[Rfam]
RNA: Molybdenum/Tungsten riboswitch aptamer (Moco RNA motif)
Organism: Parashewanella curva
RNA sequence: AUCACAACGAAUCUCCGAGCUUGUCAUUCUAAGUUUAUUUGAAUAUGAAUGACUGGCCGUAACGAACAAUAGAUCAGAGUUAAGCGGUCUAAUCGUUACCAGGGUGGUCUCAGAAAUGGUACCACCUCCCGAAUUUGGAAAGGUGAUCAUGUCUCAAUUAG
Numbered sequence: 001a002u003c004a005c006a007a008c009g010a011a012u013c014u015c016c017g018a019g020c021u022u023g024u025c026a027u028u029c030u031a032a033g034u035u036u037a038u039u040u041g042a043a044u045a046u047g048a049a050u051g052a053c054u055g056g057c058c059g060u061a062a063c064g065a066a067c068a069a070u071a072g073a074u075c076a077g078a079g080u081u082a083a084g085c086g087g088u089c090u091a092a093u094c095g096u097u098a099c100c101a102g103g104g105u106g107g108u109c110u111c112a113g114a115a116a117u118g119g120u121a122c123c124a125c126c127u128c129c130c131g132a133a134u135u136u137g138g139a140a141a142g143g144u145g146a147u148c149a150u151g152u153c154u155c156a157a158u159u160a161g
Stems, first nucleotide, its partner, number of pairs: 004154001006152001011147003015143002019057003023053007033044004059099007102127007110119003128138002